[Rfam]
RNA: Glycine riboswitch aptamer
Organism: Arthrobacter sp. MYb227
RNA sequence: UGACACGCGGCGGGAGAGUCCCGCUCAACGUAAGUUGGUCGGGCGCCGUAGGAGCAAUUCCUCUCCGGGAAACUCUCAGGCCCCCGUACCGCCGCGAAGAG
Numbered sequence: 001u002g003a004c005a006c007g008c009g010g011c012g013g014g015a016g017a018g019u020c021c022c023g024c025u026c027a028a029c030g031u032a033a034g035u036u037g038g039u040c041g042g043g044c045g046c047c048g049u050a051g052g053a054g055c056a057a058u059u060c061c062u063c064u065c066c067g068g069g070a071a072a073c074u075c076u077c078a079g080g081c082c083c084c085c086g087u088a089c090c091g092c093c094g095c096g097a098a099g100a101g
Stems, first nucleotide, its partner, number of pairs: 006096008020043004045081003048077001052075003058068002